[Rfam]
RNA sequence: UACACAAAGCAGAUGAUGACAAAACACUGAAACUGAGUCUGUAUGAAGUCCAUGCAAUCCAACACUGAGCUUUGUGUC
Numbered sequence: 001u002a003c004a005c006a007a008a009g010c011a012g013a014u015g016a017u018g019a020c021a022a023a024a025c026a027c028u029g030a031a032a033c034u035g036a037g038u039c040u041g042u043a044u045g046a047a048g049u050c051c052a053u054g055c056a057a058u059c060c061a062a063c064a065c066u067g068a069g070c071u072u073u074g075u076g077u078c
Stems, first nucleotide, its partner, number of pairs: 002077009
Dot-bracket structure: .(((((((((..........................................................))))))))).

Rfam assigns this 78-nucleotide RNA from Tachuris rubrigastra to the family "Small nucleolar RNA SNORD69". Rfam describes the family as follows. snoRNA HBII-210 belongs to the C/D family of snoRNAs. It is the human orthologue of the mouse MBII-210 and is predicted to guide the 2'O-ribose methylation of large 28S rRNA on residue G4464. The family has 11 seed sequences and 524 matches in Rfam 15.1. The organism belongs to Tachuris, within Eukaryota. For this family Rfam cites "RNomics: an experimental approach that identifies 201 candidates for novel, small, non-messenger RNAs in mouse" (Huttenhofer et al., EMBO J, 2001). The pairing is the family consensus, mapped onto this sequence. Rfam links the family to the GO terms RNA processing and nucleolus. A search with the family's covariance model found it, with a score of 52 bits.